The family of this 585-nucleotide part of an RNA from Plasmodium yoelii is "Eukaryotic large subunit ribosomal RNA".
RNA sequence: GACUGAAGUGGAGAAGGGUUUCUUGUCAACUGUGAUUGUACAAGAGUUAGCCGCUCCUAAGGGAAAGCUGAAAAGCAUUUAAAUUGGGAUAUCUGGUGUAGCAAGCAAUUGUUACAUUUAUUCCUGUCUCAAAAGGGAAACAGGUUAAUAUUCCUGUGCCUAAGUAUUUUGUUUAUUGAAUAGUUGGUAACAUAAAUUGAAUGAACUCCUUAACAUAGGUUUUACGAUCGAGAUGCGUUAUCUUUGCAUUUUAACUUUAUAACAAACCUCGGAAUCAAUUUAAUUGGAGAACAGGUUUGUUGAAUUGCAAUUCAUGAUGUUUUUAAUUGUCGGGAUACAAUACCUUAUUCCACAUUUAAAAAAUAGUGUUUUGUAGUAAUAGUAAUUCAUUAUUAUGAAUUAUUCGAUUUGUAAAAACUAUCCUUGAAAAAAGGGGGGAACAGCGAUUAUAAUGGAAGAUGGAAAUAAUUACAUGUAAUGUGUAUUUAUUUUCAUGUAGAUAUUAUACUUUCGCGUUAACAUACAAUACUUACGAGCGUACCCACAACCGCAUCAGGUCUCCUAGGUUAACAGCCUCUGGUUAAA
Numbered sequence: 001g002a003c004u005g006a007a008g009u010g011g012a013g014a015a016g017g018g019u020u021u022c023u024u025g026u027c028a029a030c031u032g033u034g035a036u037u038g039u040a041c042a043a044g045a046g047u048u049a050g051c052c053g054c055u056c057c058u059a060a061g062g063g064a065a066a067g068c069u070g071a072a073a074a075g076c077a078u079u080u081a082a083a084u085u086g087g088g089a090u091a092u093c094u095g096g097u098g099u100a101g102c103a104a105g106c107a108a109u110u111g112u113u114a115c116a117u118u119u120a121u122u123c124c125u126g127u128c129u130c131a132a133a134a135g136g137g138a139a140a141c142a143g144g145u146u147a148a149u150a151u152u153c154c155u156g157u158g159c160c161u162a163a164g165u166a167u168u169u170u171g172u173u174u175a176u177u178g179a180a181u182a183g184u185u186g187g188u189a190a191c192a193u194a195a196a197u198u199g200a201a202u203g204a205a206c207u208c209c210u211u212a213a214c215a216u217a218g219g220u221u222u223u224a225c226g227a228u229c230g231a232g233a234u235g236c237g238u239u240a241u242c243u244u245u246g247c248a249u250u251u252u253a254a255c256u257u258u259a260u261a262a263c264a265a266a267c268c269u270c271g272g273a274a275u276c277a278a279u280u281u282a283a284u285u286g287g288a289g290a291a292c293a294g295g296u297u298u299g300u301u302g303a304a305u306u307g308c309a310a311u312u313c314a315u316g317a318u319g320u321u322u323u324u325a326a327u328u329g330u331c332g333g334g335a336u337a338c339a340a341u342a343c344c345u346u347a348u349u350c351c352a353c354a355u356u357u358a359a360a361a362a363a364u365a366g367u368g369u370u371u372u373g374u375a376g377u378a379a380u381a382g383u384a385a386u387u388c389a390u391u392a393u394u395a396u397g398a399a400u401u402a403u404u405c406g407a408u409u410u411g412u413a414a415a416a417a418c419u420a421u422c423c424u425u426g427a428a429a430a431a432a433g434g435g436g437g438g439a440a441c442a443g444c445g446a447u448u449a450u451a452a453u454g455g456a457a458g459a460u461g462g463a464a465a466u467a468a469u470u471a472c473a474u475g476u477a478a479u480g481u482g483u484a485u486u487u488a489u490u491u492u493c494a495u496g497u498a499g500a501u502a503u504u505a506u507a508c509u510u511u512c513g514c515g516u517u518a519a520c521a522u523a524c525a526a527u528a529c530u531u532a533c534g535a536g537c538g539u540a541c542c543c544a545c546a547a548c549c550g551c552a553u554c555a556g557g558u559c560u561c562c563u564a565g566g567u568u569a570a571c572a573g574c575c576u577c578u579g580g581u582u583a584a585a
Stems, first nucleotide, its partner, number of pairs: 001582004010562004016542002021045006030038001052538003056136002061130002063079002067076003086123003140157005160534001163530005169523001174199002177196001206436006215421004220416006228407003231251006266296004275287004309401011548557002564576004
Rfam links the family to the GO terms structural constituent of ribosome and ribosome.
The source organism's lineage runs through Eukaryota, Sar, Haemosporida, Plasmodium and Plasmodium yoelii.